A member of the RNA family "Guanidine-II riboswitch aptamer (mini-ykkC)" from a Polyangiaceae bacterium, 48 nucleotides long. Rfam links the family to the GO term regulation of gene expression. The base pairs follow the family's consensus structure, which is taken from published work. Rfam 15.1 lists 1,589 matches to the family in 1,229 species. Rfam's curators write: Simpler in structure and has fewer highly conserved nucleotide positions than the ykkC-yxkD leader. Despite this each of its two stem-loop structures directly bind free guanidine. Therefore, mini-ykkC RNA motif represents a distinct class of guanidine-sensing RNAs. Lineage of the source: Bacteria > Pseudomonadati > Myxococcota > Polyangia > Polyangiaceae.
[Rfam]
RNA sequence: CCGCGGGGACGACCCCGCCGGCUCCCUGUAUGCGCCGGGACGACCCGG
Numbered sequence: 001c002c003g004c005g006g007g008g009a010c011g012a013c014c015c016c017g018c019c020g021g022c023u024c025c026c027u028g029u030a031u032g033c034g035c036c037g038g039g040a041c042g043a044c045c046c047g048g
Stems, first nucleotide, its partner, number of pairs: 001020001003018006035048005